About this RNA:
This 51-nucleotide RNA sequence belongs to the Rfam family "L31-Actinobacteria ribosomal protein leader". It is one of the family's seed sequences.
[Rfam]
RNA sequence: CCGGCUCCGGUUCACGUGCCACCCACCAGGGGUGCGCACGACCCGGCGGCC
Numbered sequence: 001c002c003g004g005c006u007c008c009g010g011u012u013c014a015c016g017u018g019c020c021a022c023c024c025a026c027c028a029g030g031g032g033u034g035c036g037c038a039c040g041a042c043c044c045g046g047c048g049g050c051c
Stems, first nucleotide, its partner, number of pairs: 003051003007046004015040005020034005